[Rfam]
Shown here is a 57-nucleotide RNA from Alginatibacterium sediminis, a member of the family "Pseudomonas sRNA P26". Pairs were carried over by alignment from the consensus structure, which was predicted with RNAalifold. Rfam describes the family as follows. This small RNA (sRNA) was computationally identified in the genome of the opportunistic pathogen Pseudomonas aeruginosa and its expression verified by northern blot analysis. P26 is conserved across many Gammaproteobacteria species and appears to be consistently located between the DNA directed RNA polymerase (beta subunit) and 50S ribosomal protein L7/L12 genes.
RNA sequence: CUUGUAUAGAUUGCUGCCUGUAUAGGCAUCGGCUGGUGACUUUUUAGUCACCGGCCU
Numbered sequence: 001c002u003u004g005u006a007u008a009g010a011u012u013g014c015u016g017c018c019u020g021u022a023u024a025g026g027c028a029u030c031g032g033c034u035g036g037u038g039a040c041u042u043u044u045u046a047g048u049c050a051c052c053g054g055c056c057u
Base pairs, nucleotide, nucleotide: 016027017026018025031056032055033054034053035052036051037050038049039048040047